The family of this 190-nucleotide RNA from Vibrio cholerae is "MicX Vibrio cholerae sRNA". On this family, see Davis and Waldor, Mol Microbiol 2007: "RNase E-dependent processing stabilizes MicX, a Vibrio cholerae sRNA". The family's consensus secondary structure was predicted with CMfinder.
RNA sequence: AUAAUAACGAUAAGGGCGACGUAAAGUCGCCCAUUUUGUCUCUUCUUAACAUUAAUUGGUUUGGCCGCCGACAAGUUAAGAAGCUUCAAUUCUGGCGUUACGCAUAGCUGGCUGUUAGCUCUAUUCCUUACUAGUUUCACGACUAACAGUUUUUGUAACCAAAACCUGAGCUUAGCUCGGGUUUUUUUAU
Numbered sequence: 001a002u003a004a005u006a007a008c009g010a011u012a013a014g015g016g017c018g019a020c021g022u023a024a025a026g027u028c029g030c031c032c033a034u035u036u037u038g039u040c041u042c043u044u045c046u047u048a049a050c051a052u053u054a055a056u057u058g059g060u061u062u063g064g065c066c067g068c069c070g071a072c073a074a075g076u077u078a079a080g081a082a083g084c085u086u087c088a089a090u091u092c093u094g095g096c097g098u099u100a101c102g103c104a105u106a107g108c109u110g111g112c113u114g115u116u117a118g119c120u121c122u123a124u125u126c127c128u129u130a131c132u133a134g135u136u137u138c139a140c141g142a143c144u145a146a147c148a149g150u151u152u153u154u155g156u157a158a159c160c161a162a163a164a165c166c167u168g169a170g171c172u173u174a175g176c177u178c179g180g181g182u183u184u185u186u187u188u189a190u
Stems, first nucleotide, its partner, number of pairs: 014032007036089002038085001042083009056071005097159006110151009163183009